[Rfam]
RNA sequence: AAAAAACACUAGGGGAGCCAAAAAGGCUGAGAUGCGACAUGCGGACCCUUGAACUUGAUCUAGUUCAUACUAGCGAAAGAAAGUGUCUUGAAUGAUUU
Numbered sequence: 001a002a003a004a005a006a007c008a009c010u011a012g013g014g015g016a017g018c019c020a021a022a023a024a025g026g027c028u029g030a031g032a033u034g035c036g037a038c039a040u041g042c043g044g045a046c047c048c049u050u051g052a053a054c055u056u057g058a059u060c061u062a063g064u065u066c067a068u069a070c071u072a073g074c075g076a077a078a079g080a081a082a083g084u085g086u087c088u089u090g091a092a093u094g095a096u097u098u
Base pairs, nucleotide, nucleotide: 006086007085008084009083010082011049012048013047014046017027018026019025034042035041036040054079055078056077060073061072062071063070